[Rfam]
Overview:
Rfam assigns this 75-nucleotide sequence to the family "RAGATH-18 RNA". It is annotated as a small RNA. Rfam describes the family as follows. Actinobacteria, Firmicutes, Fusobacteria, Thermotogae (1 example).
RNA sequence: UCUACGGAGUGCGAUACCAAACGUUAGUAGCGAGACGGGAAUCCGUCAGCGAGAACGCGCACGUUGAAAUAGAAA
Dot-bracket structure: ((((....(((((........(((.....((..(((((....))))).))....)))))))).......))))..